The family of this 163-nucleotide RNA sequence from Marinomonas aquimarina is "FMN riboswitch aptamer (RFN element)". About the family: The RFN element is a highly conserved domain that is found frequently in the 5'-untranslated regions of prokaryotic mRNAs that encode for flavin mononucleotide (FMN) biosynthesis and transport proteins. Lineage of the source: Bacteria > Pseudomonadati > Oceanospirillales > Oceanospirillaceae > Marinomonas.

RNA sequence: CUUCGUUCUCGGGGCGGGGUGUAAUUCCCCACCGGCGGUAAUGAGAGGUUCUCAAAGCCCGCGAGCGCUUUCUUGAAGACCUAUGUUUAGGGGAAGAGAAAGGUCAGCAGAUCUGGUGUGACUCCAGAGCCGACGGUUAUAGUCCGGAUGAUAGAGGACGGCG
Numbered sequence: 001c002u003u004c005g006u007u008c009u010c011g012g013g014g015c016g017g018g019g020u021g022u023a024a025u026u027c028c029c030c031a032c033c034g035g036c037g038g039u040a041a042u043g044a045g046a047g048g049u050u051c052u053c054a055a056a057g058c059c060c061g062c063g064a065g066c067g068c069u070u071u072c073u074u075g076a077a078g079a080c081c082u083a084u085g086u087u088u089a090g091g092g093g094a095a096g097a098g099a100a101a102g103g104u105c106a107g108c109a110g111a112u113c114u115g116g117u118g119u120g121a122c123u124c125c126a127g128a129g130c131c132g133a134c135g136g137u138u139a140u141a142g143u144c145c146g147g148a149u150g151a152u153a154g155a156g157g158a159c160g161g162c163g
Stems, first nucleotide, its partner, number of pairs: 003161008017029003031143002033132002035062004057130002065108002112128005134146003